[Rfam]
RNA sequence: GGGCACCUACGGGGGCCUAUAACAUCAGGUUCCUAAAUAGGGACCGCCAAGCAAACGGAAGAAGCUAA
Number, nucleotide and partner (000 for none) at each position: 001g018002g017003g016004c015005a000006c014007c013008u012009a000010c000011g000012g008013g007014g006015g004016c003017c002018u001019a000020u000021a000022a000023c000024a000025u000026c000027a000028g045029g044030u043031u042032c041033c040034u039035a000036a000037a000038u000039a034040g033041g032042g031043a030044c029045c028046g000047c000048c000049a000050a000051g000052c000053a000054a000055a000056c000057g000058g000059a000060a000061g000062a000063a000064g000065c000066u000067a000068a000
The record is a 68-nucleotide RNA, which matches "L2-Alphaproteobacteria ribosomal protein leader" in Rfam. It is one of the family's seed sequences. The family's consensus secondary structure is taken from published work.